[Rfam]
RNA: SAM riboswitch aptamer (S box leader)
Nucleotides: 128
Stems, first nucleotide, its partner, number of pairs: 001128001003126006013042005021031003025079004043071004048067002050064004075120001080117006
Number, partner (000 for none) and nucleotide at each position: 001128u002000g003126c004125u005124c006123a007122u008121c009000c010000a011000g012000a013042g014041a015040g016039g017038u018000g019000g020000a021031g022030g023029g024000a025079c026078c027077g028076g029023c030022c031021c032000u033000g034000a035000g036000a037000a038017a039016c040015c041014u042013c043071g044070g045069c046068a047000a048067c049066c050064g051063c052062g053061a054000a055000g056000c057000g058000c059000a060000g061053u062052c063051g064050c065000u066049g067048g068046u069045g070044c071043c072000a073000a074000a075120u076028c077027c078026g079025g080117c081116a082115g083114a084113a085112g086000u087000u088000c089000u090000c091000c092000g093000g094000c095000a096000g097000g098000g099000u100000g101000g102000c103000c104000g105000g106000g107000a108000g109000a110000c111000a112085u113084u114083u115082c116081u117080g118000g119000a120075a121008g122007a123006u124005g125004a126003g127000g128001a